[Rfam]
RNA: U4atac minor spliceosomal RNA
RNA sequence: ACCAUCCAUGUCUUGGGGAGCAAAAUGUCCAAUGAUCGUUAAGUGAGGGCAUUGAUGCUGACACCAUUUAAAAUCUAUUUAGAUUCCCGCCCUGUUGCAACCUUGAUUGCAACUGAGAGGCGGAAUUUUUGAAAGC
Numbered sequence: 001a002c003c004a005u006c007c008a009u010g011u012c013u014u015g016g017g018g019a020g021c022a023a024a025a026u027g028u029c030c031a032a033u034g035a036u037c038g039u040u041a042a043g044u045g046a047g048g049g050c051a052u053u054g055a056u057g058c059u060g061a062c063a064c065c066a067u068u069u070a071a072a073a074u075c076u077a078u079u080u081a082g083a084u085u086c087c088c089g090c091c092c093u094g095u096u097g098c099a100a101c102c103u104u105g106a107u108u109g110c111a112a113c114u115g116a117g118a119g120g121c122g123g124a125a126u127u128u129u130u131g132a133a134a135g136c
Stems, first nucleotide, its partner, number of pairs: 005019003009015001020058003024053007037043001087123005092117001095112006